Shown here is a 123-nucleotide sequence from Lacrimispora saccharolytica, a member of the family "THF (Tetrahydrofolate) riboswitch aptamer".

[Rfam]
RNA sequence: GGCAAAGUAGGGCUAAGCGCGUCAAGUGCCAGAUGGACGGGAAGUUGCCGCUGGACGAAAAAUUCUGAUUAAAAAGAUACUUUUGAUCAUCAAUUUAUGAUGUUUAACCCGCAUUCCGUUGCC
Numbered sequence: 001g002g003c004a005a006a007g008u009a010g011g012g013c014u015a016a017g018c019g020c021g022u023c024a025a026g027u028g029c030c031a032g033a034u035g036g037a038c039g040g041g042a043a044g045u046u047g048c049c050g051c052u053g054g055a056c057g058a059a060a061a062a063u064u065c066u067g068a069u070u071a072a073a074a075a076g077a078u079a080c081u082u083u084u085g086a087u088c089a090u091c092a093a094u095u096u097a098u099g100a101u102g103u104u105u106a107a108c109c110c111g112c113a114u115u116c117c118g119u120u121g122c123c
Base pairs, nucleotide, nucleotide: 001123002122003121004120005119010110011109012108014106015105016104017103018102019101020099021098022097026056027055029054030053031052032051034050035049036048040116041115042114044112060096061095062094063093

The base pairs follow the family's consensus structure, which is taken from published work. Rfam links the family to the GO term tetrahydrofolate metabolic process.